[Rfam]
RNA sequence: GUUGCAGAGCCAUUUUGGCAUUCUGUCCACCUCCUUUUAAGAGGUUUUUACUUUCCACUUGAUAUAAUUCUUGGAGGUGGCCAGCAUGUCAAACUGGCUGUGUAAA
Numbered sequence: 001g002u003u004g005c006a007g008a009g010c011c012a013u014u015u016u017g018g019c020a021u022u023c024u025g026u027c028c029a030c031c032u033c034c035u036u037u038u039a040a041g042a043g044g045u046u047u048u049u050a051c052u053u054u055c056c057a058c059u060u061g062a063u064a065u066a067a068u069u070c071u072u073g074g075a076g077g078u079g080g081c082c083a084g085c086a087u088g089u090c091a092a093a094c095u096g097g098c099u100g101u102g103u104a105a106a
Stems, first nucleotide, its partner, number of pairs: 011096001015092006024083002027080008